[Rfam]
RNA sequence: UGGCACCUACGGGGGCCUCAAACAUAGCGGAUCAGUUAGGUCCGCAUUGCUAAACGGAAGACAGAAA
Numbered sequence: 001u002g003g004c005a006c007c008u009a010c011g012g013g014g015g016c017c018u019c020a021a022a023c024a025u026a027g028c029g030g031a032u033c034a035g036u037u038a039g040g041u042c043c044g045c046a047u048u049g050c051u052a053a054a055c056g057g058a059a060g061a062c063a064g065a066a067a
Stems, first nucleotide, its partner, number of pairs: 002017003006014003027045007
L2-Alphaproteobacteria ribosomal protein leader: a 67-nucleotide sequence from Shimia gijangensis. On this family, see Eckert and Weinberg, BMC Microbiol 2020: "Discovery of 20 novel ribosomal leader candidates in bacteria and archaea".